[Rfam]
RNA sequence: GCCGGCGUGGCUUACUAUUCCAUGCAAGGGAAUUGGGCUAAGGUGUUU
Numbered sequence: 001g002c003c004g005g006c007g008u009g010g011c012u013u014a015c016u017a018u019u020c021c022a023u024g025c026a027a028g029g030g031a032a033u034u035g036g037g038c039u040a041a042g043g044u045g046u047u048u
Stems, first nucleotide, its partner, number of pairs: 006043001008041001010038005018031004
RNA: Hepatitis C virus stem-loop SL1412 RNA
Organism: Orthohepacivirus hominis